[Rfam]
RNA sequence: UGCUAUGAUGGUGUAAUUUGCGUCGGACUCUGUGUUGAGCGGCAGUUGCCUGCUGUCACAUGCUGGCACAGUUAUUUGAUUGAAAAAAUAAUUCUGAGCA
Number, nucleotide and partner (000 for none) at each position: 001u100002g099003c098004u000005a000006u000007g000008a000009u000010g000011g000012u000013g000014u000015a000016a000017u000018u000019u000020g000021c082022g080023u079024c078025g000026g000027a000028c000029u000030c071031u070032g069033u068034g067035u000036u000037g000038a000039g063040c062041g057042g056043c055044a054045g053046u000047u000048g000049c000050c000051u000052g000053c045054u044055g043056u042057c041058a000059c000060a000061u000062g040063c039064u000065g000066g000067c034068a033069c032070a031071g030072u000073u000074a000075u000076u000077u000078g024079a023080u022081u000082g021083a000084a000085a000086a000087a000088a000089u000090a000091a000092u000093u000094c000095u000096g000097a000098g003099c002100a001
Small nucleolar RNA SNORD16: a 100-nucleotide RNA sequence from Denticeps clupeoides. Rfam links the family to the GO terms nucleolus and RNA processing. A reference for the family is Huttenhofer et al. (2001), "RNomics: an experimental approach that identifies 201 candidates for novel, small, non-messenger RNAs in mouse", EMBO J. The organism belongs to Denticeps, within Eukaryota. Rfam classes the family as a C/D-box small nucleolar RNA. The family is grouped with related families in Rfam's "SNORD16 clan".